[Rfam]
RNA sequence: UGAUGUCUCUAUUAGGUGAGGUUCCUGUUCGGAGAUACGCUACUGCCCAAAAAUGUCGAGAGACGCCAAUGGGUCAGCAGGAAAGAUCGGAAAGAAGGUCUUUUCUAACGUAGCUGGUCUUAUGACCUAUGCCGCUCAGUGCCAAAGCUCAAUGAGGGGGACAUUC
Dot-bracket structure: ....(((((((([.(((..(((..(((..(((......(((((.(((((....((((....))))....))))).....((((..(((.......])))..))))....))))).(((......)))....)))..))).)))...)))..))...))))))....

This 166-nucleotide sequence from Thermoflavimicrobium daqui belongs to the Rfam family "M-box riboswitch aptamer (ykoK leader)".
Rfam 15.1 lists 1,095 matches to the family in 932 species.
The pairing is the family consensus, mapped onto this sequence.
It scores 133 bits against the family's covariance model.